This 83-nucleotide sequence from Drosophila virilis belongs to the Rfam family "mir-999 microRNA precursor family". Taxonomically the source falls in Drosophila (Eukaryota, Insecta, Dicondylia, Muscomorpha). Pairs were carried over by alignment from the consensus structure, which was predicted with RNAalifold.
[Rfam]
RNA sequence: CUCAAUUACCGUGACAUAGUCGUACGGUGAAUGUUGUGUAUGGAGUCCAAUGUUAACUGUAAGACUGUGUCUCGGUGGUUGUU
Numbered sequence: 001c002u003c004a005a006u007u008a009c010c011g012u013g014a015c016a017u018a019g020u021c022g023u024a025c026g027g028u029g030a031a032u033g034u035u036g037u038g039u040a041u042g043g044a045g046u047c048c049a050a051u052g053u054u055a056a057c058u059g060u061a062a063g064a065c066u067g068u069g070u071c072u073c074g075g076u077g078g079u080u081g082u083u
Stems, first nucleotide, its partner, number of pairs: 003081009013071009023061006030054007